[Rfam]
RNA sequence: AGUACAUAGAAUGGCUUGCAAGGGCGGUCGGCUAAUCUCCCGGAAGGGAGGUGAGGCCAUGGAGGUAUAUCAGGCACUGACGUUGAUGUUCAUGUUUGGCAUGUUCAUUAUCGCGUUGCUGACGUAUAUCAAAAAGAAAUAGACCGCCCUGGGAAAAGGUAAACGGUCUAUUUCUGAUCGCUAUUCCGAAGCCGACCGCUCUUCAAGCGGCUGUGUGCCCGGACCGUGGAUGCUCCAACAUCUGCG
Numbered sequence: 001a002g003u004a005c006a007u008a009g010a011a012u013g014g015c016u017u018g019c020a021a022g023g024g025c026g027g028u029c030g031g032c033u034a035a036u037c038u039c040c041c042g043g044a045a046g047g048g049a050g051g052u053g054a055g056g057c058c059a060u061g062g063a064g065g066u067a068u069a070u071c072a073g074g075c076a077c078u079g080a081c082g083u084u085g086a087u088g089u090u091c092a093u094g095u096u097u098g099g100c101a102u103g104u105u106c107a108u109u110a111u112c113g114c115g116u117u118g119c120u121g122a123c124g125u126a127u128a129u130c131a132a133a134a135a136g137a138a139a140u141a142g143a144c145c146g147c148c149c150u151g152g153g154a155a156a157a158g159g160u161a162a163a164c165g166g167u168c169u170a171u172u173u174c175u176g177a178u179c180g181c182u183a184u185u186c187c188g189a190a191g192c193c194g195a196c197c198g199c200u201c202u203u204c205a206a207g208c209g210g211c212u213g214u215g216u217g218c219c220c221g222g223a224c225c226g227u228g229g230a231u232g233c234u235c236c237a238a239c240a241u242c243u244g245c246g
Stems, first nucleotide, its partner, number of pairs: 002218004007213003012194006019152001021150004026144001028142001033054001035052001037050005061123001064120004074089003099114002165174002196210004225246008

A member of the RNA family "BsrG" from Paenibacillus sambharensis, 246 nucleotides long. It is annotated as a small RNA. NCBI's taxonomy places the organism under Bacteria, Bacilli, Caryophanales, Paenibacillaceae, Paenibacillus. Rfam's curators write: bsrE, bsrG and bsrH pair through intermolecular interactions with antisense sRNAs. They form type I toxin/antitoxin system that includes an mRNA encoding for a short, toxic peptide (bsrE, bsrG and bsrH) and an antitoxin that is comprised of an antisense RNA. bsrG encodes a 39-amino-acid toxin, and the 180 nucleotide antisense sRNA called SR4 acts as the antitoxin (they overlap by 123 nucleotides). Gene Ontology terms of the family: toxin activity and autolysis.